[Rfam]
RNA sequence: AGAGUGUUACGAUGUUGGGGGUAGUCCUCCGAGUCUAGCUCAGCACUACUCUCUAACGUACUGUUAGAGAG
Numbered sequence: 001a002g003a004g005u006g007u008u009a010c011g012a013u014g015u016u017g018g019g020g021g022u023a024g025u026c027c028u029c030c031g032a033g034u035c036u037a038g039c040u041c042a043g044c045a046c047u048a049c050u051c052u053c054u055a056a057c058g059u060a061c062u063g064u065u066a067g068a069g070a071g
Stems, first nucleotide, its partner, number of pairs: 002041004011035003017030004049071009
Shown here is a 71-nucleotide sequence from Vagococcus acidifermentans, a member of the family "L17 ribosomal protein downstream element".
The source organism's lineage runs through Bacteria, Bacillota, Bacilli, Lactobacillales and Vagococcus.
The family's RNA type in Rfam is cis-regulatory element.
It scores 51 bits against the family's covariance model.